[Rfam]
The record is a 56-nucleotide sequence from Azorhizobium caulinodans, which matches "nhaA-I RNA" in Rfam.
The base pairs follow the family's consensus structure, which is taken from published work.
By type it is a riboswitch.
RNA sequence: GGGUGCGCGAUCCCCUAUUGGAUCGGCAGGUUGUUGCGCUGGUCGGGCCGCCAGCG
Numbered sequence: 001g002g003g004u005g006c007g008c009g010a011u012c013c014c015c016u017a018u019u020g021g022a023u024c025g026g027c028a029g030g031u032u033g034u035u036g037c038g039c040u041g042g043u044c045g046g047g048c049c050g051c052c053a054g055c056g
Stems, first nucleotide, its partner, number of pairs: 005027002008025005037056007
About the family: Acidobacteria, Alphaproteobacteria, Betaproteobacteria and Gammaproteobacteria, Verrucomicrobia, cand. division NC10. The source organism's lineage runs through Bacteria, Pseudomonadati, Alphaproteobacteria, Azorhizobium and Azorhizobium caulinodans. The sequence is in the family's curated seed alignment.